[Rfam]
Rfam assigns this 119-nucleotide RNA from Streptomyces sp. CNQ-509 to the family "Streptomyces-metK RNA".
The family's consensus secondary structure is taken from published work.
The match comes from Rfam's covariance-model search (62 bits).
The family's RNA type in Rfam is small RNA.
RNA sequence: CCGAGACGGGUUGUCCCCCGAGCGAGACUCCCGGAUAAAAUGGCCCGCGGGCCCGUCCCGGAAGUGCCGUGCCCGGGUUCCGCAACCGAUCAGCCAGCAGCCGCUGCAACCGUGGGGAG
Numbered sequence: 001c002c003g004a005g006a007c008g009g010g011u012u013g014u015c016c017c018c019c020g021a022g023c024g025a026g027a028c029u030c031c032c033g034g035a036u037a038a039a040a041u042g043g044c045c046c047g048c049g050g051g052c053c054c055g056u057c058c059c060g061g062a063a064g065u066g067c068c069g070u071g072c073c074c075g076g077g078u079u080c081c082g083c084a085a086c087c088g089a090u091c092a093g094c095c096a097g098c099a100g101c102c103g104c105u106g107c108a109a110c111c112g113u114g115g116g117g118a119g
Stems, first nucleotide, its partner, number of pairs: 049081003053077002059075003064072001095106004